A member of the RNA family "Small nucleolar RNA SNORA1" from Octodon degus, 132 nucleotides long. NCBI's taxonomy places the organism under Eukaryota, Chordata, Vertebrata, Glires, Octodon. About the family: ACA1 is a member of the H/ACA class of snoRNA that guide the sites of modification of uridines to pseudouridines. The match comes from Rfam's covariance-model search (114 bits).

[Rfam]
RNA sequence: AGCCUCAUUCUGGAUUAGAAUGGGCACUGUUGAUUGGUGUCCAGAUUGGUCAAUGUGGCUAAAGUUGAAACACAAGUUAUGCUUCCAUCACAGUAAAUAUUUACAGUGCUGACAAUGAGGUCUGUAACAUUC
Numbered sequence: 001a002g003c004c005u006c007a008u009u010c011u012g013g014a015u016u017a018g019a020a021u022g023g024g025c026a027c028u029g030u031u032g033a034u035u036g037g038u039g040u041c042c043a044g045a046u047u048g049g050u051c052a053a054u055g056u057g058g059c060u061a062a063a064g065u066u067g068a069a070a071c072a073c074a075a076g077u078u079a080u081g082c083u084u085c086c087a088u089c090a091c092a093g094u095a096a097a098u099a100u101u102u103a104c105a106g107u108g109c110u111g112a113c114a115a116u117g118a119g120g121u122c123u124g125u126a127a128c129a130u131u132c
Stems, first nucleotide, its partner, number of pairs: 002059003006055003021043007072125003076121001086111002089108003
By type it is an H/ACA-box small nucleolar RNA. The family's consensus secondary structure was predicted with PFOLD.